[Rfam]
RNA sequence: AGGUCAUUAUCAAGGUUUUUAGAAUGCAAUUUCUCAUUUGCUGUGGACAUGACCAUAAAAAAAUUUUCCACUUGGAUUUCUCUCUGCUAUCUUGCUAGUAAUUAGCCUAUUGGGAACAAUU
Number, nucleotide and partner (000 for none) at each position: 001a000002g000003g053004u052005c051006a050007u049008u000009a000010u046011c045012a044013a000014g000015g000016u000017u000018u000019u000020u000021a000022g000023a000024a000025u000026g041027c040028a039029a038030u000031u000032u000033c000034u000035c000036a000037u000038u029039u028040g027041c026042u000043g000044u012045g011046g010047a000048c000049a007050u006051g005052a004053c003054c000055a000056u000057a000058a000059a000060a000061a000062a000063a000064u000065u000066u000067u114068c113069c112070a111071c000072u000073u000074g107075g106076a000077u104078u000079u000080c000081u000082c000083u000084c000085u100086g099087c098088u000089a000090u000091c000092u000093u000094g000095c000096u000097a000098g087099u086100a085101a000102u000103u000104a077105g000106c075107c074108u000109a000110u000111u070112g069113g068114g067115a000116a000117c000118a000119a000120u000121u000
RNA: Small nucleolar RNA SNORA32